[Rfam]
Nucleotides: 171
Stems, first nucleotide, its partner, number of pairs: 012122004016048003020044002023042005050089003054086001056083003060079005093116002095113003099109002138170006146162001
Number, partner (000 for none) and nucleotide at each position: 001000a002000u003000a004000c005000u006000c007000a008000c009000c010000u011000g012122g013121c014120a015119g016048g017047g018046g019000a020044g021043a022000u023042a024041c025040c026039a027038u028000g029000a030000u031000c032000a033000c034000g035000a036000a037000g038027g039026u040025g041024g042023u043021u044020u045000g046018c047017c048016c049000a050089g051088g052087g053000c054086g055000a056083g057082g058081c059000u060079u061078a062077u063076c064075c065000a066000u067000u068000g069000c070000a071000c072000u073000c074000u075064g076063g077062a078061u079060g080000u081058g082057c083056u084000g085000a086054c087052c088051c089050c090000c091000g092000c093116g094115a095113u096112u097111u098000c099109c100108c101000c102000a103000a104000a105000u106000g107000u108100g109099g110000g111097a112096a113095a114000c115094u116093c117000a118000a119015c120014u121013g122012c123000a124000u125000a126000a127000u128000u129000u130000g131000u132000g133000g134000u135000a136000g137000u138170g139169g140168g141167g142166g143165a144000c145000u146162g147000c148000a149000g150000g151000u152000g153000u154000c155000u156000g157000u158000c159000u160000u161000u162146c163000u164000c165143u166142c167141c168140c169139c170138c171000u

Rfam assigns this 171-nucleotide sequence from Erinaceus europaeus to the family "U1 spliceosomal RNA". Rfam classes the family as a spliceosomal small nuclear RNA. Lineage of the source: Eukaryota > Deuterostomia > Teleostomi > Erinaceinae > Erinaceus. Rfam 15.1 lists 40,184 matches to the family in 1,499 species.